RNA sequence: UGAAAUCUCAAAGGCGUGUCAUGAGAACACACAUCCUUUGGUUUCUGCCAUUGAUUGAAACCAUUGAGUUUGUGUUCUCAGGUCACCCCUUUGAAUCUCCC
Numbered sequence: 001u002g003a004a005a006u007c008u009c010a011a012a013g014g015c016g017u018g019u020c021a022u023g024a025g026a027a028c029a030c031a032c033a034u035c036c037u038u039u040g041g042u043u044u045c046u047g048c049c050a051u052u053g054a055u056u057g058a059a060a061c062c063a064u065u066g067a068g069u070u071u072g073u074g075u076u077c078u079c080a081g082g083u084c085a086c087c088c089c090u091u092u093g094a095a096u097c098u099c100c101c
Base pairs, nucleotide, nucleotide: 008094011091012090013089014088016086017085018084023079024078025077026076027075028074029073030072031071
MIR398 microRNA precursor family: a 101-nucleotide RNA from Capsella rubella.
Rfam links the family to the GO terms miRNA-mediated post-transcriptional gene silencing and RISC complex.